[Rfam]
RNA: Small nucleolar RNA SNORD99
RNA sequence: CCUGGUCCAUGAUGACUCCUAUUUACAUGGUGACUGCUGGAUGAAUCCUGCGGAUAUGGGGCUGAGACCGGCA
Numbered sequence: 001c002c003u004g005g006u007c008c009a010u011g012a013u014g015a016c017u018c019c020u021a022u023u024u025a026c027a028u029g030g031u032g033a034c035u036g037c038u039g040g041a042u043g044a045a046u047c048c049u050g051c052g053g054a055u056a057u058g059g060g061g062c063u064g065a066g067a068c069c070g071g072c073a
Base pairs, nucleotide, nucleotide: 002071003070004069005068